The record is a 314-nucleotide RNA sequence from Oxyruncus cristatus, which matches "Nuclear RNase P" in Rfam.
Taxonomically the source falls in Oxyruncus (Eukaryota, Deuterostomia, Archosauria, Theropoda).
Rfam classes the family as a ribozyme.
The family is grouped with related families in Rfam's "RNaseP clan".
It scores 150 bits against the family's covariance model.
RNA sequence: UCCGGGGGAAGCUCACCGCCGAGGCCACCACGGGGUGCGCGUCACCCUCGCCCCGCCUCGGGGAAGGUCUGAGGGAAGGGCCGCCCGCGGCCCCAGCAGGGCCCCGCCCGCGAGGGGCGGGUGAGCCACCAGCAAGGGGGGGCGCCGCGCGGGCCGGCCCGGGCAGGAGAAGCCGCGGCGGUUCCCCCGCGGAGCCCCGGCGGAUGCUCGUGGCCCCGCGGCGCUUUGAGACAGACUCACGGCCGGCUGCGCUGAGUCCAAUGGGUGAGGUGGGGCAGCGCCCCAUAACCCAAUUCAGACUACUCUCCCCCGGA
Numbered sequence: 001u002c003c004g005g006g007g008g009a010a011g012c013u014c015a016c017c018g019c020c021g022a023g024g025c026c027a028c029c030a031c032g033g034g035g036u037g038c039g040c041g042u043c044a045c046c047c048u049c050g051c052c053c054c055g056c057c058u059c060g061g062g063g064a065a066g067g068u069c070u071g072a073g074g075g076a077a078g079g080g081c082c083g084c085c086c087g088c089g090g091c092c093c094c095a096g097c098a099g100g101g102c103c104c105c106g107c108c109c110g111c112g113a114g115g116g117g118c119g120g121g122u123g124a125g126c127c128a129c130c131a132g133c134a135a136g137g138g139g140g141g142g143c144g145c146c147g148c149g150c151g152g153g154c155c156g157g158c159c160c161g162g163g164c165a166g167g168a169g170a171a172g173c174c175g176c177g178g179c180g181g182u183u184c185c186c187c188c189g190c191g192g193a194g195c196c197c198c199g200g201c202g203g204a205u206g207c208u209c210g211u212g213g214c215c216c217c218g219c220g221g222c223g224c225u226u227u228g229a230g231a232c233a234g235a236c237u238c239a240c241g242g243c244c245g246g247c248u249g250c251g252c253u254g255a256g257u258c259c260a261a262u263g264g265g266u267g268a269g270g271u272g273g274g275g276c277a278g279c280g281c282c283c284c285a286u287a288a289c290c291c292a293a294u295u296c297a298g299a300c301u302a303c304u305c306u307c308c309c310c311c312g313g314a
Base pairs, nucleotide, nucleotide: 001314002313003312004311007308008307009306012269013268014267015266016265017264020060021059022058023057024056033047034046035045036044037043069298070297071296072295073294079244080243081242082241089103090102091101092100093099104120105119106118107117108116109115121240122239123238124237125236127234141225142224143223144222145221146220147219148218149217270286271285272284273283274282275281276280